[Rfam]
RNA sequence: UUUGCUGAGCUACUUGCUCCUUACACCGGCGAUAUCGCCGCCGAAGGCAUCGCGAAAGUGCUGCGCGGCGGUGCAAAGCGUUUCCAACAUGGCCUGCAGCGUCAGCAGCAGUACGUGGGCGAAGCCAUAACGGAAGAGUGGCGUCUGGCACCCGGUGGGCUGGAGGUUGCCUGGUUUGCCGAGGAGGCCGCCGCCGUCGCGCGCUCGGUUGAUGCGUUAACCAAACGGCUGGAAAAACUGGAGGGCAAAUGA
Numbered sequence: 001u002u003u004g005c006u007g008a009g010c011u012a013c014u015u016g017c018u019c020c021u022u023a024c025a026c027c028g029g030c031g032a033u034a035u036c037g038c039c040g041c042c043g044a045a046g047g048c049a050u051c052g053c054g055a056a057a058g059u060g061c062u063g064c065g066c067g068g069c070g071g072u073g074c075a076a077a078g079c080g081u082u083u084c085c086a087a088c089a090u091g092g093c094c095u096g097c098a099g100c101g102u103c104a105g106c107a108g109c110a111g112u113a114c115g116u117g118g119g120c121g122a123a124g125c126c127a128u129a130a131c132g133g134a135a136g137a138g139u140g141g142c143g144u145c146u147g148g149c150a151c152c153c154g155g156u157g158g159g160c161u162g163g164a165g166g167u168u169g170c171c172u173g174g175u176u177u178g179c180c181g182a183g184g185a186g187g188c189c190g191c192c193g194c195c196g197u198c199g200c201g202c203g204c205u206c207g208g209u210u211g212a213u214g215c216g217u218u219a220a221c222c223a224a225a226c227g228g229c230u231g232g233a234a235a236a237a238c239u240g241g242a243g244g245g246c247a248a249a250u251g252a
Stems, first nucleotide, its partner, number of pairs: 001244003005240001007081001009079003014052001016050001019047004027040005062075005085214002088211002090208001092206001095203001099144006115128004148179003152174004158168004186198003190194001217231001221228002
Erse small RNA: a 252-nucleotide RNA from Pseudescherichia vulneris. A reference for the family is Chen et al. (2012), "Esre: a novel essential non-coding RNA in Escherichia coli", FEBS Lett. The match comes from Rfam's covariance-model search (166 bits).